[Rfam]
RNA: Small nucleolar RNA Z247
Organism: Oryza nivara
RNA sequence: CCCCUCGAUGACGAGGAGCUGAUGGGCUAUGUUCUGGCCGGCCUCGACGAGGACUAUGAGCCGGUUGUCUCCAGUCUGGUAGGCAAAAGCGAACCAGUGUCAAUUUCUGAAGUUUAUUCUCAACUGUUGAGUUUCGAGU
Numbered sequence: 001c002c003c004c005u006c007g008a009u010g011a012c013g014a015g016g017a018g019c020u021g022a023u024g025g026g027c028u029a030u031g032u033u034c035u036g037g038c039c040g041g042c043c044u045c046g047a048c049g050a051g052g053a054c055u056a057u058g059a060g061c062c063g064g065u066u067g068u069c070u071c072c073a074g075u076c077u078g079g080u081a082g083g084c085a086a087a088a089g090c091g092a093a094c095c096a097g098u099g100u101c102a103a104u105u106u107c108u109g110a111a112g113u114u115u116a117u118u119c120u121c122a123a124c125u126g127u128u129g130a131g132u133u134u135c136g137a138g139u
Stems, first nucleotide, its partner, number of pairs: 004138005088108002091105002
Dot-bracket structure: ...(((((...............................................................................((.((...........)).)).........................))))).